[Rfam]
Shown here is a 104-nucleotide sequence from Nitrosospira multiformis, a member of the family "Guanidine-I riboswitch aptamer". From the family's description: This family represents a conserved RNA structure found upstream of the ykkC and yxkD genes in Bacillus subtilis and related genes in other bacteria. The base pairs follow the family's consensus structure.
RNA sequence: GUAGCGCGAAACUAGGGUUCCGGCUUCUUUUUCGAAGUGUCUGGUCCGAGAGUUUCCGGCUUCGUCAUGACGAGGCUCCACGGAGGGAUAAAAGCCCGGGAGAU
Number, nucleotide and partner (000 for none) at each position: 001g000002u000003a000004g000005c000006g000007c000008g056009a055010a054011a053012c052013u000014a000015g047016g046017g000018u000019u000020c044021c043022g041023g038024c037025u036026u035027c034028u000029u000030u000031u000032u000033c000034g027035a026036a025037g024038u023039g000040u000041c022042u000043g021044g020045u000046c016047c015048g000049a000050g000051a000052g012053u011054u010055u009056c008057c000058g077059g076060c075061u074062u073063c072064g071065u070066c000067a000068u000069g000070a065071c064072g063073a062074g061075g060076c059077u058078c000079c099080a000081c102082g000083g000084a000085g097086g096087g095088a000089u000090a000091a000092a000093a000094g000095c087096c086097c085098g000099g079100g000101a000102g081103a000104u000
For this family Rfam cites "New RNA motifs suggest an expanded scope for riboswitches in bacterial genetic control" (Barrick et al., Proc Natl Acad Sci U S A, 2004).